The record is an 82-nucleotide sequence from Oryzias latipes, which matches "mir-190 microRNA precursor family" in Rfam. A reference for the family is Kloosterman et al. (2006), "Cloning and expression of new microRNAs from zebrafish", Nucleic Acids Res. Clan: mir-50 clan. Rfam's curators put it in the seed alignment. Its family is annotated with miRNA-mediated post-transcriptional gene silencing and RISC complex in the Gene Ontology.
[Rfam]
RNA sequence: GAGGCUGUGUGAUAUGUUUGAUAUUCGGUUGUUCUUGUGCUUCAUCAUGUCAACUAAAUAUCAGACAUAUUCCAACAGACUC
Numbered sequence: 001g002a003g004g005c006u007g008u009g010u011g012a013u014a015u016g017u018u019u020g021a022u023a024u025u026c027g028g029u030u031g032u033u034c035u036u037g038u039g040c041u042u043c044a045u046c047a048u049g050u051c052a053a054c055u056a057a058a059u060a061u062c063a064g065a066c067a068u069a070u071u072c073c074a075a076c077a078g079a080c081u082c
Base pairs, nucleotide, nucleotide: 005078006077007076008075011071012070013069014068015067016066017065018064019063020062021061022060023059024058025057027055028054029053030052031051